[Rfam]
Nucleotides: 360
Base pairs, nucleotide, nucleotide: 001360002359003358004357009355010354011353012352013351014350015349016348018346019345020344035059036058037057038056039055044049060102061101063099064098065097066096067095068094069093070092071091103107115339116338117337118336119335120334121333122331123330126140127139128138143178144177145176146175147174148173149172150171151168155164156163157162181326182325183324184323186256187255188254191253192252193249194248195247196246197245200244201243202242211233212232213231214230215229218225219224257275258274259273260272261271262270276280286313296312297311298310299309300308301307
Number, partner (000 for none) and nucleotide at each position: 001360u002359g003358a004357g005000a006000g007000a008000a009355c010354u011353c012352u013351g014350c015349u016348g017000a018346a019345g020344g021000a022000a023000c024000u025000a026000g027000g028000c029000a030000a031000a032000a033000u034000g035059g036058u037057a038056c039055c040000g041000u042000a043000a044049c045000u046000u047000c048000g049044g050000g051000a052000g053000a054000a055039g056038g057037u058036a059035c060102g061101c062000g063099g064098u065097u066096g067095u068094u069093g070092g071091u072000g073000a074000u075000g076000g077000a078000a079000c080000u081000u082000g083000c084000u085000u086000c087000c088000u089000g090000a091071g092070c093069u094068g095067a096066c097065g098064a099063c100000a101061g102060c103107c104000g105000c106000a107103g108000a109000a110000a111000c112000c113000a114000g115339g116338c117337c118336g119335c120334u121333g122331c123330a124000a125000c126140u127139g128138u129000u130000u131000a132000u133000u134000a135000a136000a137000a138128a139127c140126a141000u142000a143178g144177c145176a146175c147174u148173c149172u150171g151168c152000a153000a154000a155164c156163a157162c158000g159000a160000a161000a162157g163156u164155g165000g166000a167000c168151g169000u170000a171150u172149a173148g174147g175146g176145u177144g178143u179000g180000a181326u182325g183324c184323c185000u186256g187255c188254c189000c190000g191253g192252u193249g194248c195247u196246g197245g198000a199000a200244g201243g202242u203000u204000a205000a206000u207000u208000g209000a210000u211233g212232g213231g214230g215229u216000u217000a218225g219224c220000g221000u222000a223000a224219g225218c226000g227000a228000a229215g230214c231213u232212c233211u234000u235000g236000a237000u238000c239000g240000a241000a242202g243201c244200c245197c246196c247195a248194g249193u250000a251000a252192a253191c254188g255187g256186c257275g258274g259273c260272c261271g262270u263000a264000a265000c266000u267000a268000u269000a270262a271261c272260g273259g274258u275257c276280c277000u278000a279000a280276g281000g282000u283000a284000g285000c286313g287000a288000a289000a290000u291000u292000c293000c294000u295000u296312g297311u298310c299309g300308g301307g302000u303000a304000a305000g306000u307301u308300c309299c310298g311297a312296c313286c314000u315000g316000c317000a318000c319000g320000a321000a322000u323184g324183g325182c326181a327000u328000a329000a330123u331122g332000a333121u334120g335119g336118c337117g338116g339115c340000g341000c342000u343000g344020u345019c346018u347000c348016c349015a350014g351013c352012a353011g354010a355009g356000g357004c358003u359002c360001a
Rfam assigns this 360-nucleotide part of an RNA from Acinetobacter pittii to the family "Bacterial large subunit ribosomal RNA". The literature on the family includes a 2001 paper in Science by Yusupov et al., "Crystal structure of the ribosome at 5.5 A resolution".